[Rfam]
RNA sequence: CUUCUUUGGUGGCUCCAUCUUAGCCCUAGUCACGGCUAGCUGUGAAAGGUCCGUGAGCCGCAUGACUGCAGAGAGUGCUGAUACUGGCCUCUCUGCAGUUCAUGU
Numbered sequence: 001c002u003u004c005u006u007u008g009g010u011g012g013c014u015c016c017a018u019c020u021u022a023g024c025c026c027u028a029g030u031c032a033c034g035g036c037u038a039g040c041u042g043u044g045a046a047a048g049g050u051c052c053g054u055g056a057g058c059c060g061c062a063u064g065a066c067u068g069c070a071g072a073g074a075g076u077g078c079u080g081a082u083a084c085u086g087g088c089c090u091c092u093c094u095g096c097a098g099u100u101c102a103u104g105u
Stems, first nucleotide, its partner, number of pairs: 006029004011025004031055005040049002060105006066098010077088004